Record summary:
Rfam assigns this 88-nucleotide RNA sequence from Taxus chinensis to the family "mir-160 microRNA precursor family". Rfam 15.1 lists 1,502 matches to the family in 247 species. Taxonomically the source falls in Taxus (Eukaryota, Euphyllophyta, Spermatophyta, Acrogymnospermae). For this family Rfam cites "Prediction of plant microRNA targets" (Rhoades et al., Cell, 2002). The family's consensus secondary structure was predicted with PFOLD.
RNA sequence: UUCUGCAUGUCUCCCUGUAUGCCAACUGUGAAGCAUAUCAAGUGUUUUUGACAGGCUUCUCAGAUGGCAUACAGGGAGCCAGGCAGAC
Numbered sequence: 001u002u003c004u005g006c007a008u009g010u011c012u013c014c015c016u017g018u019a020u021g022c023c024a025a026c027u028g029u030g031a032a033g034c035a036u037a038u039c040a041a042g043u044g045u046u047u048u049u050g051a052c053a054g055g056c057u058u059c060u061c062a063g064a065u066g067g068c069a070u071a072c073a074g075g076g077a078g079c080c081a082g083g084c085a086g087a088c
Stems, first nucleotide, its partner, number of pairs: 002087005008081002011078004016073009027062002